[Rfam]
RNA sequence: ACAGAAAAAAAAGGGGACCGCAGUAGAAGAGUUCAUGUUGUGGCUCCUGUCCAAUUCCAGUGAACCUACAAAUUCUGCU
Numbered sequence: 001a002c003a004g005a006a007a008a009a010a011a012a013g014g015g016g017a018c019c020g021c022a023g024u025a026g027a028a029g030a031g032u033u034c035a036u037g038u039u040g041u042g043g044c045u046c047c048u049g050u051c052c053a054a055u056u057c058c059a060g061u062g063a064a065c066c067u068a069c070a071a072a073u074u075c076u077g078c079u
Base pairs, nucleotide, nucleotide: 013047014046015045016044018043019042022079023078024077025076026075027074028073029041031039055064056063057062

Mammalian CPEB3 ribozyme: a 79-nucleotide RNA sequence from Crocodylus porosus. The match comes from Rfam's covariance-model search (38 bits). Rfam describes the family as follows. The mammalian CPEB3 ribozyme is a self cleaving RNA located in the second intron of the CPEB3 gene which belongs to a family of genes regulating messenger RNA polyadenylation.